[Rfam]
RNA sequence: AAAAACAAAACCUUGAGCCACUUAGGCUCAAGGCUUCCUUCCAUGCACCGCAAUGGCGCUGAAGGCAAAGGGAGAGGAGAAACCGGAGGAAGAACUUAUGGGGAAACGUAAGUCUUCUCCGCGG
Numbered sequence: 001a002a003a004a005a006c007a008a009a010a011c012c013u014u015g016a017g018c019c020a021c022u023u024a025g026g027c028u029c030a031a032g033g034c035u036u037c038c039u040u041c042c043a044u045g046c047a048c049c050g051c052a053a054u055g056g057c058g059c060u061g062a063a064g065g066c067a068a069a070g071g072g073a074g075a076g077g078a079g080a081a082a083c084c085g086g087a088g089g090a091a092g093a094a095c096u097u098a099u100g101g102g103g104a105a106a107c108g109u110a111a112g113u114c115u116u117c118u119c120c121g122c123g124g
Stems, first nucleotide, its partner, number of pairs: 011033009036072005045059001049058002084121004089117004094113005
Rfam assigns this 124-nucleotide RNA sequence from Mesobacillus subterraneus to the family "ylbH leader". From the family's description: This family is a putative regulatory RNA structure that is found upstream of the ylbH gene in B. subtilis and related low GC Gram-positive bacteria. Rfam links the family to the GO term regulation of gene expression. The base pairs follow the family's consensus structure.